mir-965 microRNA precursor family: an 81-nucleotide RNA from Diabrotica balteata. NCBI's taxonomy places the organism under Eukaryota, Eumetazoa, Mandibulata, Cucujiformia, Diabrotica. The base pairs follow the family's consensus structure, which was predicted with RNAalifold. Its family is annotated with miRNA-mediated post-transcriptional gene silencing and RISC complex in the Gene Ontology.
[Rfam]
RNA sequence: UUUUAAAAAGGAGAAGCUACAUGUUAUAUGUAUCAUUCUGUCUCCGGCUUCUAUAUAACAUGUAGCUUCUCCUUUUUAAAA
Number, nucleotide and partner (000 for none) at each position: 001u000002u000003u079004u078005a077006a076007a075008a000009a073010g072011g071012a000013g069014a068015a000016g000017c065018u064019a063020c062021a061022u000023g000024u058025u057026a000027u055028a054029u053030g052031u000032a000033u000034c000035a000036u000037u000038c000039u000040g000041u000042c000043u000044c000045c000046g000047g000048c000049u000050u000051c000052u030053a029054u028055a027056u000057a025058a024059c000060a000061u021062g020063u019064a018065g017066c000067u000068u014069c013070u000071c011072c010073u009074u000075u007076u006077u005078a004079a003080a000081a000